A member of the RNA family "Bacteroidetes FopS (family of paralogous sRNAs)" from Indolivaga macrotermitis, 73 nucleotides long. On this family, see Ruttiger et al., Nat Commun 2025: "The global RNA-binding protein RbpB is a regulator of polysaccharide utilization in Bacteroides thetaiotaomicron". Its family is annotated with sRNA-mediated gene silencing in the Gene Ontology. From the family's description: The RNA-binding protein RbpB and BTncRNA_FopS sRNA are involved in the post-transcription regulation of polysaccharide utilisation loci (PUL). FopS sRNAs function as post-transcriptional repressors by binding to the vicinity of the start codon of the first mRNA of target PUL polycistrons, typically corresponding to the cognate SusC homolog, impeding translation of the respective glycan transporter.
RNA sequence: GUGUUUUUCAUAGUAUUAGAUUUAAGGUUAAUAAUUGAGAAUUAGGUUGUCGUGAUGACAACCUUUUCUUAUU
Numbered sequence: 001g002u003g004u005u006u007u008u009c010a011u012a013g014u015a016u017u018a019g020a021u022u023u024a025a026g027g028u029u030a031a032u033a034a035u036u037g038a039g040a041a042u043u044a045g046g047u048u049g050u051c052g053u054g055a056u057g058a059c060a061a062c063c064u065u066u067u068c069u070u071a072u073u
Stems, first nucleotide, its partner, number of pairs: 045063007